[Rfam]
RNA sequence: GCCUCUGAGGAUGUUAAAAUUAAAACUUCGUUCUUCCGAGAAAGUCCAUGCGGAAAAUUUUUGGAGACCUGAGCUGAAGAGGC
Numbered sequence: 001g002c003c004u005c006u007g008a009g010g011a012u013g014u015u016a017a018a019a020u021u022a023a024a025a026c027u028u029c030g031u032u033c034u035u036c037c038g039a040g041a042a043a044g045u046c047c048a049u050g051c052g053g054a055a056a057a058u059u060u061u062u063g064g065a066g067a068c069c070u071g072a073g074c075u076g077a078a079g080a081g082g083c
Stems, first nucleotide, its partner, number of pairs: 003081004

A member of the RNA family "Small nucleolar RNA Z159/U59" from Durio zibethinus, 83 nucleotides long. Its family is annotated with RNA processing and nucleolus in the Gene Ontology. Taxonomically the source falls in Durio (Eukaryota, Viridiplantae, Streptophytina, eudicotyledons).